[Rfam]
RNA sequence: AAUGCACACAAAACCCAAAGAACAUUGUUUUAUCUAAUAAUGCUCUUGCCUGAUGUGCAGAUAUUAAACGCUACCUUGUCGCCUUUCAUUUGCUGCUGUGCUACUGAAAGUGAAAUCAAGGUUCAACACUU
Numbered sequence: 001a002a003u004g005c006a007c008a009c010a011a012a013a014c015c016c017a018a019a020g021a022a023c024a025u026u027g028u029u030u031u032a033u034c035u036a037a038u039a040a041u042g043c044u045c046u047u048g049c050c051u052g053a054u055g056u057g058c059a060g061a062u063a064u065u066a067a068a069c070g071c072u073a074c075c076u077u078g079u080c081g082c083c084u085u086u087c088a089u090u091u092g093c094u095g096c097u098g099u100g101c102u103a104c105u106g107a108a109a110g111u112g113a114a115a116u117c118a119a120g121g122u123u124c125a126a127c128a129c130u131u
Stems, first nucleotide, its partner, number of pairs: 003059006020045002023042007070124001073122005083110006090103001092101002